[Rfam]
Shown here is a 176-nucleotide RNA from Oryza meridionalis, a member of the family "MIR807 microRNA precursor family". NCBI's taxonomy places the organism under Eukaryota, Tracheophyta, Spermatophyta, Magnoliopsida, Oryza. The match comes from Rfam's covariance-model search (151 bits). On this family, see Luo et al., FEBS Lett 2006: "Rice embryogenic calli express a unique set of microRNAs, suggesting regulatory roles of microRNAs in plant post-embryogenic development".

RNA sequence: AACCACACUAUCAAUGAAUGGAUUCUUUUAUGAGAUGACGUGGUUGUUUUACCUAAAAUGAGGAUGUGACAUCUUAUUAAUUUCGUGCGACGGCGGGUAAUAAGAUGCCGCGUCCUCAUCCUAAGUGGAACAACCACGUCGUAUCACGGGUGAAUCCAUUUAUUGAUAGUGUGGUU
Numbered sequence: 001a002a003c004c005a006c007a008c009u010a011u012c013a014a015u016g017a018a019u020g021g022a023u024u025c026u027u028u029u030a031u032g033a034g035a036u037g038a039c040g041u042g043g044u045u046g047u048u049u050u051a052c053c054u055a056a057a058a059u060g061a062g063g064a065u066g067u068g069a070c071a072u073c074u075u076a077u078u079a080a081u082u083u084c085g086u087g088c089g090a091c092g093g094c095g096g097g098u099a100a101u102a103a104g105a106u107g108c109c110g111c112g113u114c115c116u117c118a119u120c121c122u123a124a125g126u127g128g129a130a131c132a133a134c135c136a137c138g139u140c141g142u143a144u145c146a147c148g149g150g151u152g153a154a155u156c157c158a159u160u161u162a163u164u165g166a167u168a169g170u171g172u173g174g175u176u
Stems, first nucleotide, its partner, number of pairs: 001176007009168007017160003021156005027150002031146003035142005041136008051126002054123002058119001063114003070107010